[Rfam]
RNA: C. elegans sRNA ceN115
Organism: Caenorhabditis elegans
RNA sequence: CAGUUCUCCAAGACGGACGGAGCUUUCGAGUUUCGUGCUACGGCACGUCUCUCGGAGAGCCAAGACAAAUCCAAGUCAAAAACCAACAAACCAAAUAAAUGACUUAACAAAAUGCUCCCCGUCUUUAAAUUUUGGAAAAGGGUCCCAAUAGGGACCCGG
Numbered sequence: 001c002a003g004u005u006c007u008c009c010a011a012g013a014c015g016g017a018c019g020g021a022g023c024u025u026u027c028g029a030g031u032u033u034c035g036u037g038c039u040a041c042g043g044c045a046c047g048u049c050u051c052u053c054g055g056a057g058a059g060c061c062a063a064g065a066c067a068a069a070u071c072c073a074a075g076u077c078a079a080a081a082a083c084c085a086a087c088a089a090a091c092c093a094a095a096u097a098a099a100u101g102a103c104u105u106a107a108c109a110a111a112a113u114g115c116u117c118c119c120c121g122u123c124u125u126u127a128a129a130u131u132u133u134g135g136a137a138a139a140g141g142g143u144c145c146c147a148a149u150a151g152g153g154a155c156c157c158g159g
Base pairs, nucleotide, nucleotide: 007136008135009134010133011124012123013122014121015120016119019118020117021116022115023114024057025056026055027054028053029052030051034047035046036045037044038043073105074104075103076102077101078100140157141156142155143154144153145152146151